The family of this 264-nucleotide part of an RNA from Allobrachymonas denitrificans is "Bacterial large subunit ribosomal RNA". Taxonomically the source falls in Allobrachymonas denitrificans (Bacteria, Pseudomonadati, Betaproteobacteria, Allobrachymonas).
RNA sequence: GCAGAUUUGAGGAAGCCUGCUCCUAGUACGAGAGGACCGGAGUGGACACACCUCUGGUGUACCUGUUGUCACGCCAGUGGCAUCGCAGGGUAGCUAAGUGUGGAAGAGAUAACCGCUGAAAGCAUCUAAGCGGGAAACUCGUUUCAAGAUGAGAUCUGCCGGGGGCUUGACCCCCCUGAAGAGUCGUUCUAGACCAGGACGUUGAUAGGCUGGAUGUGGAAGUGCAGCAAUGCAUUAAGCUGACCAGUACUAAUUGCUCGUGCG
Numbered sequence: 001g002c003a004g005a006u007u008u009g010a011g012g013a014a015g016c017c018u019g020c021u022c023c024u025a026g027u028a029c030g031a032g033a034g035g036a037c038c039g040g041a042g043u044g045g046a047c048a049c050a051c052c053u054c055u056g057g058u059g060u061a062c063c064u065g066u067u068g069u070c071a072c073g074c075c076a077g078u079g080g081c082a083u084c085g086c087a088g089g090g091u092a093g094c095u096a097a098g099u100g101u102g103g104a105a106g107a108g109a110u111a112a113c114c115g116c117u118g119a120a121a122g123c124a125u126c127u128a129a130g131c132g133g134g135a136a137a138c139u140c141g142u143u144u145c146a147a148g149a150u151g152a153g154a155u156c157u158g159c160c161g162g163g164g165g166c167u168u169g170a171c172c173c174c175c176c177u178g179a180a181g182a183g184u185c186g187u188u189c190u191a192g193a194c195c196a197g198g199a200c201g202u203u204g205a206u207a208g209g210c211u212g213g214a215u216g217u218g219g220a221a222g223u224g225c226a227g228c229a230a231u232g233c234a235u236u237a238a239g240c241u242g243a244c245c246a247g248u249a250c251u252a253a254u255u256g257c258u259c260g261u262g263c264g
Stems, first nucleotide, its partner, number of pairs: 001159008011145004017045007047102005055096003062089005067082006106140003113133005162176003178261001181259004185201005206252003209248005216240001219236001222235005